Source information
The family of this 93-nucleotide sequence from Vulpes vulpes is "mir-8799 microRNA precursor family". Rfam links the family to the GO terms RISC complex and miRNA-mediated post-transcriptional gene silencing. It scores 57 bits against the family's covariance model. The family is grouped with related families in Rfam's "mir-8791 microRNA precursor clan".
[Rfam]
RNA sequence: GGGGGGAGUGCCGGAUCUUGGUUGUGUCCCCCCGCUCCUUGGCCUCUGGGGCCUGUGCUGCUGGAAUCAUACUCCCUGGCCGUGCAGCCCCCU
Numbered sequence: 001g002g003g004g005g006g007a008g009u010g011c012c013g014g015a016u017c018u019u020g021g022u023u024g025u026g027u028c029c030c031c032c033c034g035c036u037c038c039u040u041g042g043c044c045u046c047u048g049g050g051g052c053c054u055g056u057g058c059u060g061c062u063g064g065a066a067u068c069a070u071a072c073u074c075c076c077u078g079g080c081c082g083u084g085c086a087g088c089c090c091c092c093u
Stems, first nucleotide, its partner, number of pairs: 001093006010085002012082003017079002020076002023071004027065002031063001032060001034058002037055001041053001044051002
Dot-bracket structure: ((((((...(((((..((.((.((((((..((.((.(...(..((....)).).).)).)..)))..))))...)).))))).))..))))))